[Rfam]
RNA sequence: AACUGACCGUACGGGUGCUUGAGUGAAUCAGGCUGAGAUAGCAGACGAAUCCGCUGCUGACCGCAUCUGAUCUGGAUAAUGCCAGCGUAGAGAGCCGUGAUCUGAGGAUC
Numbered sequence: 001a002a003c004u005g006a007c008c009g010u011a012c013g014g015g016u017g018c019u020u021g022a023g024u025g026a027a028u029c030a031g032g033c034u035g036a037g038a039u040a041g042c043a044g045a046c047g048a049a050u051c052c053g054c055u056g057c058u059g060a061c062c063g064c065a066u067c068u069g070a071u072c073u074g075g076a077u078a079a080u081g082c083c084a085g086c087g088u089a090g091a092g093a094g095c096c097g098u099g100a101u102c103u104g105a106g107g108a109u110c
Base pairs, nucleotide, nucleotide: 006098007097009095010094012063013062014061017033018032019031020030021029040058041057042056043055044054066091067090068089069088072085073084074083075082

TPP riboswitch aptamer (THI element): a 110-nucleotide RNA from Sporosarcina sp. BI001-red.
The base pairs follow the family's consensus structure, which is taken from published work.